[Rfam]
RNA sequence: ACAGAUGAAAAGCUGCGAGGCUCGCACCGUACAGGAAGACUUUCAAUAGUUCUUACCAUCUCUCGCGAGCGGGCUAAGGUCUGAGCAUUCUAAUCAUUCUUGAUUGAUCCUAGCUGGAUCCAGCUGUAACCAGCUGAAGCGGCGUAUCAGAAAUCCGACCUAGCCACUUCCCCAGAGACGGCUCCCUGCGGCAAGAGGGAAUGUAGUGGCUGCUGGUCUUGGAACUCGCCGUAAUGAUUGGGUGGGCGACCGUUCAAAGCCUUUUGUAGCGCUUGGUCGACCCAUCCUUCAGCUCACUUCGCAGCACAAUCCCGGAUUGUAACUCGAUUCAGACUACUCUUCGUCUGU
Numbered sequence: 001a002c003a004g005a006u007g008a009a010a011a012g013c014u015g016c017g018a019g020g021c022u023c024g025c026a027c028c029g030u031a032c033a034g035g036a037a038g039a040c041u042u043u044c045a046a047u048a049g050u051u052c053u054u055a056c057c058a059u060c061u062c063u064c065g066c067g068a069g070c071g072g073g074c075u076a077a078g079g080u081c082u083g084a085g086c087a088u089u090c091u092a093a094u095c096a097u098u099c100u101u102g103a104u105u106g107a108u109c110c111u112a113g114c115u116g117g118a119u120c121c122a123g124c125u126g127u128a129a130c131c132a133g134c135u136g137a138a139g140c141g142g143c144g145u146a147u148c149a150g151a152a153a154u155c156c157g158a159c160c161u162a163g164c165c166a167c168u169u170c171c172c173c174a175g176a177g178a179c180g181g182c183u184c185c186c187u188g189c190g191g192c193a194a195g196a197g198g199g200a201a202u203g204u205a206g207u208g209g210c211u212g213c214u215g216g217u218c219u220u221g222g223a224a225c226u227c228g229c230c231g232u233a234a235u236g237a238u239u240g241g242g243u244g245g246g247c248g249a250c251c252g253u254u255c256a257a258a259g260c261c262u263u264u265u266g267u268a269g270c271g272c273u274u275g276g277u278c279g280a281c282c283c284a285u286c287c288u289u290c291a292g293c294u295c296a297c298u299u300c301g302c303a304g305c306a307c308a309a310u311c312c313c314g315g316a317u318u319g320u321a322a323c324u325c326g327a328u329u330c331a332g333a334c335u336a337c338u339c340u341u342c343g344u345c346u347g348u
Base pairs, nucleotide, nucleotide: 001348002347003346004345007342008341009340012305013304014303015302016301017300018299020070021069022068023067024066034056036054037053038052039051081332082331083330084329085328086236087235088234089233106120107119108118109117110116121136122135123134124133125132126131139232140231141230142229143228144227157218158217159216306320307319308318309317310316
RNA: Nuclear RNase P
Organism: Agrocybe pediades